[Rfam]
RNA sequence: UAAUCUUUCAAGGACAAUCAUCAUCUAUUUAUGACAAAUUCACACCUGAUUGCUUAUAAUUGCUUGUUAUAUCAUUCUCCUUGUGUUAAAGAGAAUUCACUCUCGAGUUCUAUUCUUCCUUCAAAUAAAAUAUCAAGUGUUGGACAUUGAA
Numbered sequence: 001u002a003a004u005c006u007u008u009c010a011a012g013g014a015c016a017a018u019c020a021u022c023a024u025c026u027a028u029u030u031a032u033g034a035c036a037a038a039u040u041c042a043c044a045c046c047u048g049a050u051u052g053c054u055u056a057u058a059a060u061u062g063c064u065u066g067u068u069a070u071a072u073c074a075u076u077c078u079c080c081u082u083g084u085g086u087u088a089a090a091g092a093g094a095a096u097u098c099a100c101u102c103u104c105g106a107g108u109u110c111u112a113u114u115c116u117u118c119c120u121u122c123a124a125a126u127a128a129a130a131u132a133u134c135a136a137g138u139g140u141u142g143g144a145c146a147u148u149g150a151a
Stems, first nucleotide, its partner, number of pairs: 004149001007146001008144002012140001014138002018135001023131002026127005
Source information:
Shown here is a 151-nucleotide RNA from Populus tomentosa, a member of the family "MIR480 microRNA precursor family". The family has 69 seed sequences and 3,070 matches in Rfam 15.1. The base pairs follow the family's consensus structure, which was predicted with WAR. The literature on the family includes a 2005 paper in Plant Cell by Lu et al., "Novel and mechanical stress-responsive MicroRNAs in Populus trichocarpa that are absent from Arabidopsis". Gene Ontology terms of the family: miRNA-mediated post-transcriptional gene silencing and RISC complex.